[Rfam]
RNA sequence: GGCUGGUCCGAGUACAGUGGUGUUUACAACUAAUUAAUUACAACCAGUUACAGUAUGGUUUUUUUUAUCCCUUUGCUUUUUCUCCACUCCCACUGCUUCACUUGACUAGACUUAA
Numbered sequence: 001g002g003c004u005g006g007u008c009c010g011a012g013u014a015c016a017g018u019g020g021u022g023u024u025u026a027c028a029a030c031u032a033a034u035u036a037a038u039u040a041c042a043a044c045c046a047g048u049u050a051c052a053g054u055a056u057g058g059u060u061u062u063u064u065u066u067a068u069c070c071c072u073u074u075g076c077u078u079u080u081u082c083u084c085c086a087c088u089c090c091c092a093c094u095g096c097u098u099c100a101c102u103u104g105a106c107u108a109g110a111c112u113u114a115a
Stems, first nucleotide, its partner, number of pairs: 001111001003109006010103002016094005022089001028077001030075001032073002
Shown here is a 115-nucleotide RNA sequence from Carlito syrichta, a member of the family "Y RNA". Rfam 15.1 lists 26,986 matches to the family in 650 species. Rfam's curators write: Y RNAs are components of the Ro ribonucleoprotein particle (Ro RNP), in association with Ro60 and La proteins. The Y RNAs and Ro60 and La proteins are well conserved, but the function of the Ro RNP is not known. In humans the RNA component can be one of four small RNAs -- hY1, hY3, hY4 and hY5. These small RNAs are predicted to fold into a conserved secondary structure containing three stem structures. Pairs were carried over by alignment from the consensus structure, which is taken from published work. By type it is a non-coding RNA gene. The source organism's lineage runs through Eukaryota, Eumetazoa, Boreoeutheria, Tarsiidae and Carlito.